RNA sequence: UCGUGUCUUUGAGGCAAGGUGAGGGUCAAUUGACUCAAUUCCUGACCGGCGGUAAAGUCCGCAAGCGCAAGCUGAUUCGAUGAAAUUUCGAAACCGACAGUAUAGUCUGGCUGGGAAAGGACAAAA
Numbered sequence: 001u002c003g004u005g006u007c008u009u010u011g012a013g014g015c016a017a018g019g020u021g022a023g024g025g026u027c028a029a030u031u032g033a034c035u036c037a038a039u040u041c042c043u044g045a046c047c048g049g050c051g052g053u054a055a056a057g058u059c060c061g062c063a064a065g066c067g068c069a070a071g072c073u074g075a076u077u078c079g080a081u082g083a084a085a086u087u088u089c090g091a092a093a094c095c096g097a098c099a100g101u102a103u104a105g106u107c108u109g110g111c112u113g114g115g116a117a118a119g120g121a122c123a124a125a126a
Stems, first nucleotide, its partner, number of pairs: 004123007017043003045106002047096002049062004057094002065072002076092005098109003
Shown here is a 126-nucleotide RNA sequence from Negativicoccus succinicivorans, a member of the family "FMN riboswitch aptamer (RFN element)". It scores 86 bits against the family's covariance model. NCBI's taxonomy places the organism under Bacteria, Bacillati, Bacillota, Negativicutes, Negativicoccus.